About this RNA: This 86-nucleotide sequence from Bacillus sp. FJAT-50079 belongs to the Rfam family "BsrC". Lineage of the source: Bacteria > Bacillati > Bacillota > Bacillaceae > Bacillus. The literature on the family includes a 2008 paper in Gene by Saito et al., "Novel small RNA-encoding genes in the intergenic regions of Bacillus subtilis". About the family: The 301 nucleotide sequence from Kouji Nakamura has been trimmed to a highly conserved ~85 nucleotide long core to form this family. Pairs were carried over by alignment from the consensus structure, which was predicted with CMfinder. The match comes from Rfam's covariance-model search (68 bits). Rfam classes the family as a small RNA.
RNA sequence: AAUACCUAAACGACGUAUGCCCUACCUCUCAUACAUCCUUACGACUCCUUAGUCGAUCCAGUGUGAUUAGUUCUUAAUUAUUUUAA
Numbered sequence: 001a002a003u004a005c006c007u008a009a010a011c012g013a014c015g016u017a018u019g020c021c022c023u024a025c026c027u028c029u030c031a032u033a034c035a036u037c038c039u040u041a042c043g044a045c046u047c048c049u050u051a052g053u054c055g056a057u058c059c060a061g062u063g064u065g066a067u068u069a070g071u072u073c074u075u076a077a078u079u080a081u082u083u084u085a086a
Stems, first nucleotide, its partner, number of pairs: 034065002038061002042055005